[Rfam]
RNA sequence: GGCCACCCUCGGGGGGCUAUAACAUAGGCGGGUUUACCUGCCGUAAGCAAACGGAAGACAGAAA
Dot-bracket structure: ((((.(((...)))))))........((((((....))))))......................

This 64-nucleotide RNA sequence from Roseovarius sp. TM1035 belongs to the Rfam family "L2-Alphaproteobacteria ribosomal protein leader".
Pairs were carried over by alignment from the consensus structure, which is taken from published work.